[Rfam]
RNA sequence: AGGAGGAACAGCCACAGUGGCUAUGGCAGCUCUGGAAGACUGGAGUCAGCCCCCACAGUAACUCCGGGGCUCUCCGUCCCGUCCUCAGGGCCUGGAGGCUCCGCGGCGGG
Numbered sequence: 001a002g003g004a005g006g007a008a009c010a011g012c013c014a015c016a017g018u019g020g021c022u023a024u025g026g027c028a029g030c031u032c033u034g035g036a037a038g039a040c041u042g043g044a045g046u047c048a049g050c051c052c053c054c055a056c057a058g059u060a061a062c063u064c065c066g067g068g069g070c071u072c073u074c075c076g077u078c079c080c081g082u083c084c085u086c087a088g089g090g091c092c093u094g095g096a097g098g099c100u101c102c103g104c105g106g107c108g109g110g
Stems, first nucleotide, its partner, number of pairs: 002102004009094003012090002019078003025072001028071009039059004